Source information: This 411-nucleotide sequence from Nocardioides sp. dk884 belongs to the Rfam family "Bacterial RNase P class A". A search with the family's covariance model found it, with a score of 273 bits. Rfam classes the family as a ribozyme. Ribonuclease P (RNase P) is a ubiquitous endoribonuclease, found in archaea, bacteria and eukarya as well as chloroplasts and mitochondria.
[Rfam]
RNA sequence: UGGGCUGGCCGGGCGACCGCGCCGUACUCCUCGGAGUACGUCGAGGAAGGUCCGGGCUCCACAGGGCAGGGUGGUGGGUAACGCCCACCCGGGGUGACCCGCGGGACAGUGCCACAGAGAACAGACCGCCUCCGGGCUCGGGCAACCGGGCCGGGGGGUAAGGGUGAAACGGUGGUGCAAGAGACCACCAGCGGCUCGGGCGACCGAGCUGGCUAGGUAAACCCCACCCGGAGCAAGGUCAAGAAGCCGCGGUUUCGCACCGCGGUGCGCGUGCGUUCGAGGGCGGCCCGCCCGAGCACGCGGGUAGAUCGCUGGAGGCUGUCGGCAACGGCAGUCGUAGAUGGAUGGUCGCCACCCGGACGCCCGCAAGGGCCCCGGGGACAGAACCCGGCCUACAGGUCAGCCCGUCCG
Numbered sequence: 001u002g003g004g005c006u007g008g009c010c011g012g013g014c015g016a017c018c019g020c021g022c023c024g025u026a027c028u029c030c031u032c033g034g035a036g037u038a039c040g041u042c043g044a045g046g047a048a049g050g051u052c053c054g055g056g057c058u059c060c061a062c063a064g065g066g067c068a069g070g071g072u073g074g075u076g077g078g079u080a081a082c083g084c085c086c087a088c089c090c091g092g093g094g095u096g097a098c099c100c101g102c103g104g105g106a107c108a109g110u111g112c113c114a115c116a117g118a119g120a121a122c123a124g125a126c127c128g129c130c131u132c133c134g135g136g137c138u139c140g141g142g143c144a145a146c147c148g149g150g151c152c153g154g155g156g157g158g159u160a161a162g163g164g165u166g167a168a169a170c171g172g173u174g175g176u177g178c179a180a181g182a183g184a185c186c187a188c189c190a191g192c193g194g195c196u197c198g199g200g201c202g203a204c205c206g207a208g209c210u211g212g213c214u215a216g217g218u219a220a221a222c223c224c225c226a227c228c229c230g231g232a233g234c235a236a237g238g239u240c241a242a243g244a245a246g247c248c249g250c251g252g253u254u255u256c257g258c259a260c261c262g263c264g265g266u267g268c269g270c271g272u273g274c275g276u277u278c279g280a281g282g283g284c285g286g287c288c289c290g291c292c293c294g295a296g297c298a299c300g301c302g303g304g305u306a307g308a309u310c311g312c313u314g315g316a317g318g319c320u321g322u323c324g325g326c327a328a329c330g331g332c333a334g335u336c337g338u339a340g341a342u343g344g345a346u347g348g349u350c351g352c353c354a355c356c357c358g359g360a361c362g363c364c365c366g367c368a369a370g371g372g373c374c375c376c377g378g379g380g381a382c383a384g385a386a387c388c389c390g391g392c393c394u395a396c397a398g399g400u401c402a403g404c405c406c407g408u409c410c411g
Stems, first nucleotide, its partner, number of pairs: 001407010011396001012353007020043002023040006048394003052391005057233004064289004069229005074088005089103001090101004104224002109222002111218003126163002128159006135152007171189006191213001192211008237310004269301006281293004317336008